Rfam assigns this 181-nucleotide sequence from Rummeliibacillus sp. TYF005 to the family "Lysine riboswitch aptamer". Pairs were carried over by alignment from the consensus structure, which is taken from published work.

[Rfam]
RNA sequence: AGAUGAGGUAGAGGUCGCGAUAUUCAUGAGUAUGAUCGACGAGAUGAAAAAGCAUUACAGACUCGAUUAAAAAAGGGAAUAUUGCCGAAGUGUUGGUAAGCUUUUUAUUGCUAAUGCUGGGGCUGCUAUCGAAAGGUGCAGAACUGUCACGUCUAAAAAGGCGUGUUGAGCUAUCUUUAUC
Numbered sequence: 001a002g003a004u005g006a007g008g009u010a011g012a013g014g015u016c017g018c019g020a021u022a023u024u025c026a027u028g029a030g031u032a033u034g035a036u037c038g039a040c041g042a043g044a045u046g047a048a049a050a051a052g053c054a055u056u057a058c059a060g061a062c063u064c065g066a067u068u069a070a071a072a073a074a075g076g077g078a079a080u081a082u083u084g085c086c087g088a089a090g091u092g093u094u095g096g097u098a099a100g101c102u103u104u105u106u107a108u109u110g111c112u113a114a115u116g117c118u119g120g121g122g123c124u125g126c127u128a129u130c131g132a133a134a135g136g137u138g139c140a141g142a143a144c145u146g147u148c149a150c151g152u153c154u155a156a157a158a159a160g161g162c163g164u165g166u167u168g169a170g171c172u173a174u175c176u177u178u179a180u181c
Stems, first nucleotide, its partner, number of pairs: 006176006017085009033069007089118011119145002123141004129135001148165006